The family of this 72-nucleotide RNA sequence from Medicago truncatula is "MIR2629 microRNA precursor family".
Lineage of the source: Eukaryota > Viridiplantae > eudicotyledons > Gunneridae > Medicago.
The match comes from Rfam's covariance-model search (66 bits).
Rfam links the family to the GO terms miRNA-mediated post-transcriptional gene silencing and RISC complex.
RNA sequence: UCGGCAGGUUUUCCUCGGUAGUUAACUGCAGCUGGAUUUCUAAAACUUCGGCAGUUAACUGCCGAAGGGCAA
Numbered sequence: 001u002c003g004g005c006a007g008g009u010u011u012u013c014c015u016c017g018g019u020a021g022u023u024a025a026c027u028g029c030a031g032c033u034g035g036a037u038u039u040c041u042a043a044a045a046c047u048u049c050g051g052c053a054g055u056u057a058a059c060u061g062c063c064g065a066a067g068g069g070c071a072a
Stems, first nucleotide, its partner, number of pairs: 012068002015065015